RNA: MIR827 microRNA precursor family
RNA sequence: AUCUGUUUUGUUGAUGGUCAUCUAAUCAUUUCCAAAUUCCUCCCUGUCUUGUUGAGUGAGGCCAUGAUUAGAUGACCAUCAGCAAACAAGUU
Numbered sequence: 001a002u003c004u005g006u007u008u009u010g011u012u013g014a015u016g017g018u019c020a021u022c023u024a025a026u027c028a029u030u031u032c033c034a035a036a037u038u039c040c041u042c043c044c045u046g047u048c049u050u051g052u053u054g055a056g057u058g059a060g061g062c063c064a065u066g067a068u069u070a071g072a073u074g075a076c077c078a079u080c081a082g083c084a085a086a087c088a089a090g091u092u
Stems, first nucleotide, its partner, number of pairs: 005087004010083020